RNA sequence: AAAAAGGGCUUCUGCCGUGCUUGGCACAGGAGGGGUGGGGAUAACCAACCCUUCUGCGGAAUCGCUAUCAAGAGAUUUCGGAAGCACAAUUUUUAAUCCAGGGGCUGCUGGUGAUCACGUGUCCUGGCGCCCCG
Numbered sequence: 001a002a003a004a005a006g007g008g009c010u011u012c013u014g015c016c017g018u019g020c021u022u023g024g025c026a027c028a029g030g031a032g033g034g035g036u037g038g039g040g041a042u043a044a045c046c047a048a049c050c051c052u053u054c055u056g057c058g059g060a061a062u063c064g065c066u067a068u069c070a071a072g073a074g075a076u077u078u079c080g081g082a083a084g085c086a087c088a089a090u091u092u093u094u095a096a097u098c099c100a101g102g103g104g105c106u107g108c109u110g111g112u113g114a115u116c117a118c119g120u121g122u123c124c125u126g127g128c129g130c131c132c133c134g
Base pairs, nucleotide, nucleotide: 008085009084010083011082012081013026014025015024016023017022027056028055029054030053031052032051033050034049036047037046038045057080058079059078060077061076062075063074102132103131104130105129107128108127109126110125111124113123114122115121
The record is a 134-nucleotide sequence from Dissostichus mawsoni, which matches "U11 spliceosomal RNA" in Rfam.
Taxonomically the source falls in Dissostichus (Eukaryota, Euteleostomi, Percomorphaceae, Perciformes).